A member of the RNA family "mir-27 microRNA precursor family" from Merluccius polli, 78 nucleotides long. The match comes from Rfam's covariance-model search (72 bits).

RNA sequence: UGAAGAUGCAGAGCUUAGCUCAUUAGUGAGCACCGAGGCAAACCCUUUUGUUCACAGUGGCUAAGUUCAGCGUCUGAC
Numbered sequence: 001u002g003a004a005g006a007u008g009c010a011g012a013g014c015u016u017a018g019c020u021c022a023u024u025a026g027u028g029a030g031c032a033c034c035g036a037g038g039c040a041a042a043c044c045c046u047u048u049u050g051u052u053c054a055c056a057g058u059g060g061c062u063a064a065g066u067u068c069a070g071c072g073u074c075u076g077a078c
Stems, first nucleotide, its partner, number of pairs: 011068010026055007